RNA sequence: UUAUAUUUUGCAAAUAUUUUGGGAGACAUAGAUUUUUCUCCCUGUGCUCCCCCGUUCUAUUCUGAGGAGUGCGCUGCGCCGCCCAACCCUGUCGCCCCCCGGAGGUGAUCCCUCCCUCCAGCCCGCCCCAGCAACAACAGAGAGCACGUGGUGAGCGGCCGGGCUGGGCCCCUGGGGCACCCGGGAAGGGGAGGCGAGUGA
Number, nucleotide and partner (000 for none) at each position: 001u000002u000003a000004u000005a000006u000007u000008u000009u000010g000011c000012a000013a000014a000015u000016a000017u000018u000019u000020u000021g000022g000023g040024a039025g038026a037027c000028a000029u000030a000031g000032a000033u000034u000035u000036u000037u026038c025039u024040c023041c000042c000043u073044g072045u071046g070047c069048u068049c067050c066051c000052c000053c000054g000055u000056u000057c000058u000059a000060u000061u000062c000063u000064g000065a000066g050067g049068a048069g047070u046071g045072c044073g043074c000075u000076g178077c177078g000079c175080c174081g173082c000083c000084c000085a000086a000087c000088c000089c000090u000091g000092u000093c000094g000095c000096c000097c000098c000099c000100c000101g115102g114103a113104g112105g111106u000107g000108a000109u000110c000111c105112c104113u103114c102115c101116c000117u000118c000119c000120a000121g000122c000123c000124c000125g159126c158127c157128c000129c000130a000131g000132c000133a000134a000135c000136a000137a000138c000139a000140g000141a000142g000143a000144g000145c000146a000147c000148g000149u000150g000151g000152u000153g000154a000155g000156c000157g127158g126159c125160c000161g000162g000163g000164c000165u000166g000167g000168g000169c000170c000171c000172c000173u081174g080175g079176g000177g077178c076179a000180c000181c000182c000183g000184g000185g000186a000187a000188g000189g000190g000191g000192a000193g000194g000195c000196g000197a000198g000199u000200g000201a000
RNA: Mnt IRES
Organism: Spermophilus dauricus